[Rfam]
RNA sequence: UAAGUUAGAAGUUGAAAUAGUUGUUAUUAAUUAAUGAUGCGGUCCCAACGCAUCAAGCCCUAAUUGGGAGGUGAUAAGUGAUGUGGGGGGUGGCAGUCCCACCUAACCUA
Numbered sequence: 001u002a003a004g005u006u007a008g009a010a011g012u013u014g015a016a017a018u019a020g021u022u023g024u025u026a027u028u029a030a031u032u033a034a035u036g037a038u039g040c041g042g043u044c045c046c047a048a049c050g051c052a053u054c055a056a057g058c059c060c061u062a063a064u065u066g067g068g069a070g071g072u073g074a075u076a077a078g079u080g081a082u083g084u085g086g087g088g089g090g091u092g093g094c095a096g097u098c099c100c101a102c103c104u105a106a107c108c109u110a
Stems, first nucleotide, its partner, number of pairs: 001110002004107005011049004040096001042094003051078001052072003083102005
RNA: skipping-rope RNA